[Rfam]
RNA sequence: CCGUGCUAAGUGGGGAAUUAGCGGUGCCCUGUACUUGCAAUCCGCUCUAGCAAGACUGAAUUCCACUUCUGAGGAAUUGGAUGUGAGGACUGCCGCUUACCAGAGGUGUUGAGAUCUCGGUCCUAUGCAAUAGAACGUUACGAACCAUGUCAGGUCCGGAAGGAAGCAGCAUUAAGUAACCCAUUCUAUGUGCCGUAGGGUAGCCGAGGUUGAGCUGAAAGUAAGCGUAACGCUUGUGUUAAAUAUUCGAAGAAGUGGUGCACGG
Numbered sequence: 001c002c003g004u005g006c007u008a009a010g011u012g013g014g015g016a017a018u019u020a021g022c023g024g025u026g027c028c029c030u031g032u033a034c035u036u037g038c039a040a041u042c043c044g045c046u047c048u049a050g051c052a053a054g055a056c057u058g059a060a061u062u063c064c065a066c067u068u069c070u071g072a073g074g075a076a077u078u079g080g081a082u083g084u085g086a087g088g089a090c091u092g093c094c095g096c097u098u099a100c101c102a103g104a105g106g107u108g109u110u111g112a113g114a115u116c117u118c119g120g121u122c123c124u125a126u127g128c129a130a131u132a133g134a135a136c137g138u139u140a141c142g143a144a145c146c147a148u149g150u151c152a153g154g155u156c157c158g159g160a161a162g163g164a165a166g167c168a169g170c171a172u173u174a175a176g177u178a179a180c181c182c183a184u185u186c187u188a189u190g191u192g193c194c195g196u197a198g199g200g201u202a203g204c205c206g207a208g209g210u211u212g213a214g215c216u217g218a219a220a221g222u223a224a225g226c227g228u229a230a231c232g233c234u235u236g237u238g239u240u241a242a243a244u245a246u247u248c249g250a251a252g253a254a255g256u257g258g259u260g261c262a263c264g265g
Stems, first nucleotide, its partner, number of pairs: 001265006009057003012030004017025003034054005063258007071248003075244001078242001080240008091229002095226006105216003113211009122199006128190002131188005137180005147172004155164003
A member of the RNA family "Bacterial large signal recognition particle RNA" from Phocicoccus pinnipedialis, 265 nucleotides long. The signal recognition particle (SRP) is a universally conserved ribonucleoprotein involved in the co-translational targeting of proteins to membranes. On this family, see Regalia et al., Nucleic Acids Res 2002: "Prediction of signal recognition particle RNA genes". The base pairs follow the family's consensus structure, which is taken from published work. Rfam classes the family as a non-coding RNA gene. It scores 208 bits against the family's covariance model.